pan motif: a 101-nucleotide sequence from Allolucifera butyrica.
The match comes from Rfam's covariance-model search (50 bits).
It is annotated as a cis-regulatory element.

[Rfam]
RNA sequence: CUGGCGGCAUCCGGUGGGAGCCGCACAAAGAGACGGGCUGUGUCUUGAAAUAACCUCAUAAUAGUAAUCCGCUUAGAUCCGGACAGGACUGAGACGGGAGG
Numbered sequence: 001c002u003g004g005c006g007g008c009a010u011c012c013g014g015u016g017g018g019a020g021c022c023g024c025a026c027a028a029a030g031a032g033a034c035g036g037g038c039u040g041u042g043u044c045u046u047g048a049a050a051u052a053a054c055c056u057c058a059u060a061a062u063a064g065u066a067a068u069c070c071g072c073u074u075a076g077a078u079c080c081g082g083a084c085a086g087g088a089c090u091g092a093g094a095c096g097g098g099a100g101g
Stems, first nucleotide, its partner, number of pairs: 002027002004024005010019002069097003072093005078088003